[Rfam]
RNA sequence: UGCGCAGAGCGUGUUUCAGGACGAUGUUGCCAAAGCUCACCCCCUUCAGCCGCGCCGUGCGGAUGUAUUGCGCGGUCAUCACCUCGGUCAUCGAGGCACGGGUCAUGCGCGCGAUAUAGCCCAUCCCGUAAAGCGAGAUGGUCAGCACCGGCAAAAAGAAAUUCCAGAAGGUCGCGUCU
Numbered sequence: 001u002g003c004g005c006a007g008a009g010c011g012u013g014u015u016u017c018a019g020g021a022c023g024a025u026g027u028u029g030c031c032a033a034a035g036c037u038c039a040c041c042c043c044c045u046u047c048a049g050c051c052g053c054g055c056c057g058u059g060c061g062g063a064u065g066u067a068u069u070g071c072g073c074g075g076u077c078a079u080c081a082c083c084u085c086g087g088u089c090a091u092c093g094a095g096g097c098a099c100g101g102g103u104c105a106u107g108c109g110c111g112c113g114a115u116a117u118a119g120c121c122c123a124u125c126c127c128g129u130a131a132a133g134c135g136a137g138a139u140g141g142u143c144a145g146c147a148c149c150g151g152c153a154a155a156a157a158g159a160a161a162u163u164c165c166a167g168a169a170g171g172u173c174g175c176g177u178c179u
Stems, first nucleotide, its partner, number of pairs: 005140002010135003014131002016128001019126003028123002038113001040111001042109001046105001048103001050101003054097001055075008082096005145179001147177001149174004156163002

About this RNA:
Rfam assigns this 179-nucleotide RNA sequence from Sulfitobacter pontiacus to the family "Ruegeria cis52 sRNA".